[Rfam]
RNA: Clostridiales-1 RNA
Organism: Clostridiales bacterium CHKCI001
RNA sequence: UAAAAGUAUCGUCAAUGUCCAGACAGCUAGGGUAUUUAUGCCCUAUGCUGACUGGACAUUGGACGAUCUGACCUGUAUGAGCAAGUAAGGCAUUUGCCUGGAUUGCGAAUAUGGGCAGCGAUGUGGAGAGUGCGCAGCACGAAAAAAUGGAUUUUUA
Dot-bracket structure: ((((...((((..(((((((((.((((..(((((....)))))...)))).)))))))))...))))....(((((((..((((...((((....))))...))))..)))))))...(.((.(.....((((...))))....).)).)...))))